[Rfam]
RNA sequence: UCGAAGUUUCAUCUACAAAUGGAGAAGAUUUUUUGUCUUAGUUGUAAAUCCGAAUCGUUGCAACAAAGUAGCACUACCCCAUGUCUUGCUUUACAGACAUGGGGUAUUGGCGACUUU
Numbered sequence: 001u002c003g004a005a006g007u008u009u010c011a012u013c014u015a016c017a018a019a020u021g022g023a024g025a026a027g028a029u030u031u032u033u034u035g036u037c038u039u040a041g042u043u044g045u046a047a048a049u050c051c052g053a054a055u056c057g058u059u060g061c062a063a064c065a066a067a068g069u070a071g072c073a074c075u076a077c078c079c080c081a082u083g084u085c086u087u088g089c090u091u092u093a094c095a096g097a098c099a100u101g102g103g104g105u106a107u108u109g110g111c112g113a114c115u116u117u
Stems, first nucleotide, its partner, number of pairs: 008023005065117005071111002073108001075106003079102003083098004

Plastid-psbA-1 3UTR RNA: a 117-nucleotide RNA from Musa balbisiana. Rfam describes the family as follows. Plastid psbA-1 is a non-coding RNA (ncRNA) present in plastids. It was identified in inverted repeat sequences in the 3 prime untranslate region (3UTR) of photosystem II quinone-binding protein (psbA). The organism belongs to Musa, within Eukaryota.